Rfam assigns this 249-nucleotide part of an RNA from Haloarchaeobius iranensis to the family "Archaeal large subunit ribosomal RNA". The base pairs follow the family's consensus structure, which is taken from published work. It scores 2816 bits against the family's covariance model. Clan: LSU clan.

[Rfam]
RNA sequence: GGUACCUGACGGGAACGUUCGUAUAGUACGAGAGGAACUACGAAUGGUGACCACUGGUGUACGGGUUGUUCGAGAGAGCACGUGCCCGGCAGCCACGUCACACGGGGUAAGAGCUGAACGCAUCUAAGCUCGAAACCCACCUGGAAAAGAGGUACCACUAUGAUCACCCGUAGAAGACGGGUUAGAUAGACUCGGGGUGUGCGCGCCAAGGCAACGAGGCGUUAAGCCCGCGAGCACUAACAGAUCAUG
Numbered sequence: 001g002g003u004a005c006c007u008g009a010c011g012g013g014a015a016c017g018u019u020c021g022u023a024u025a026g027u028a029c030g031a032g033a034g035g036a037a038c039u040a041c042g043a044a045u046g047g048u049g050a051c052c053a054c055u056g057g058u059g060u061a062c063g064g065g066u067u068g069u070u071c072g073a074g075a076g077a078g079c080a081c082g083u084g085c086c087c088g089g090c091a092g093c094c095a096c097g098u099c100a101c102a103c104g105g106g107g108u109a110a111g112a113g114c115u116g117a118a119c120g121c122a123u124c125u126a127a128g129c130u131c132g133a134a135a136c137c138c139a140c141c142u143g144g145a146a147a148a149g150a151g152g153u154a155c156c157a158c159u160a161u162g163a164u165c166a167c168c169c170g171u172a173g174a175a176g177a178c179g180g181g182u183u184a185g186a187u188a189g190a191c192u193c194g195g196g197g198u199g200u201g202c203g204c205g206c207c208a209a210g211g212c213a214a215c216g217a218g219g220c221g222u223u224a225a226g227c228c229c230g231c232g233a234g235c236a237c238u239a240a241c242a243g244a245u246c247a248u249g
Stems, first nucleotide, its partner, number of pairs: 001156007010143004016046008047101005055095003062088005067080005104138003111131005162246004166182005187239003191234004195229003203222005210215001